RNA sequence: CUUGACGGAGCCGAGCCACAGCGGCCGCUCGCGGCCUUGACCGUACGUGGCCAGGAUCGCCUGUGCCUC
Number, nucleotide and partner (000 for none) at each position: 001c000002u000003u000004g000005a000006c000007g000008g000009a000010g000011c000012c000013g000014a000015g025016c024017c023018a000019c000020a000021g000022c000023g017024g016025c015026c000027g000028c065029u000030c063031g000032c059033g058034g000035c000036c000037u054038u053039g052040a000041c050042c049043g048044u000045a000046c000047g000048u043049g042050g041051c000052c039053a038054g037055g000056a000057u000058c033059g032060c000061c000062u000063g030064u000065g028066c000067c000068u000069c000
ASpks TB sRNA: a 69-nucleotide RNA sequence from Streptomyces formicae.
Pairs were carried over by alignment from the consensus structure, which is taken from published work.
By type it is an antisense RNA.
Taxonomically the source falls in Streptomyces (Bacteria, Bacillati, Actinomycetota, Kitasatosporales).